[Rfam]
RNA sequence: GCCUCACUUGUCCUUUUCUGCCUGCCCUGACCCUUGAAUCUGCUGCACCAUUCAGGCAGGGCAGGCAGAAGUGGACAAGUGAGGA
Numbered sequence: 001g002c003c004u005c006a007c008u009u010g011u012c013c014u015u016u017u018c019u020g021c022c023u024g025c026c027c028u029g030a031c032c033c034u035u036g037a038a039u040c041u042g043c044u045g046c047a048c049c050a051u052u053c054a055g056g057c058a059g060g061g062c063a064g065g066c067a068g069a070a071g072u073g074g075a076c077a078a079g080u081g082a083g084g085a
Base pairs, nucleotide, nucleotide: 002084003083004082005081006080007079008078009077010076011075012074013073015071016070017069018068019067021065022064023063024062025061026060027059028058029057031055037044
RNA: mir-4436 microRNA precursor family
Organism: Macaca mulatta